[Rfam]
RNA sequence: UUGACGAAACAGGGGUGCUUCGGCGCGCGUCUCCCGGCUUGAACGAACGGAGAACCGCGCGGCGAGGCUGAGAGAGUCCCUUCGCACCCGAUCCGGGUAAUACCGGCGAGGGAAGUUUCCGGAAACGCGAU
Number, nucleotide and partner (000 for none) at each position: 001u000002u000003g000004a000005c000006g119007a118008a117009a116010c115011a081012g080013g079014g078015g000016u075017g068018c067019u066020u065021c064022g000023g000024c000025g000026c000027g000028c000029g000030u000031c000032u000033c000034c000035c000036g000037g000038c000039u000040u000041g000042a000043a000044c000045g000046a000047a000048c000049g000050g000051a000052g000053a000054a000055c000056c000057g000058c000059g000060c000061g000062g000063c000064g021065a020066g019067g018068c017069u000070g000071a000072g000073a000074g000075a016076g000077u000078c014079c013080c012081u011082u000083c000084g000085c000086a000087c112088c111089c110090g000091a000092u000093c106094c105095g104096g103097g000098u000099a000100a000101u000102a000103c096104c095105g094106g093107c000108g000109a000110g089111g088112g087113a000114a000115g010116u009117u008118u007119c006120c000121g000122g000123a000124a000125a000126c000127g000128c000129g000130a000131u000

TPP riboswitch aptamer (THI element): a 131-nucleotide RNA from Burkholderia sp. Leaf177. A search with the family's covariance model found it, with a score of 62 bits. The source organism's lineage runs through Bacteria, Pseudomonadati, Betaproteobacteria, Burkholderiales and Burkholderia.